[Rfam]
About this RNA:
Rfam assigns this 102-nucleotide sequence from Caenorhabditis briggsae to the family "mir-36 microRNA precursor family". Rfam links the family to the GO terms miRNA-mediated post-transcriptional gene silencing and RISC complex. The match comes from Rfam's covariance-model search (73 bits).
RNA sequence: UCUGAUAGUCUGGAUCGAAUCUUUGCUGGUUUCCUCUGCGGUGAUAUUCCAAAUGAAGUGCUUAUCACCGGGUGAAAACUGGUAGAGAUCCGAUCCCGUCGG
Dot-bracket structure: ...............((.((((.(((((((((.(.((.(.((((((................)))))).))).).))))))))).)))).))..........